[Rfam]
RNA sequence: UGGUUAUUUGACCGUCCCCGACCGCCCGUUCAAACGAUGGCGGCCUUCAUAGACGAGCAUCGCGCGGAAUAUAGGGUCGAGCCGAUUUGCAGGGUUCUGCCAUUUGCCCCA
Numbered sequence: 001u002g003g004u005u006a007u008u009u010g011a012c013c014g015u016c017c018c019c020g021a022c023c024g025c026c027c028g029u030u031c032a033a034a035c036g037a038u039g040g041c042g043g044c045c046u047u048c049a050u051a052g053a054c055g056a057g058c059a060u061c062g063c064g065c066g067g068a069a070u071a072u073a074g075g076g077u078c079g080a081g082c083c084g085a086u087u088u089g090c091a092g093g094g095u096u097c098u099g100c101c102a103u104u105u106g107c108c109c110c111a
Stems, first nucleotide, its partner, number of pairs: 010026001012024001014022001072111001074109003083106002087102001089100004
A member of the RNA family "ALIL pseudoknot" from Sphingomonas sp. SKA58, 111 nucleotides long. The family's RNA type in Rfam is cis-regulatory element. Taxonomically the source falls in Sphingomonas (Bacteria, Alphaproteobacteria, Sphingomonadales, Sphingomonadaceae).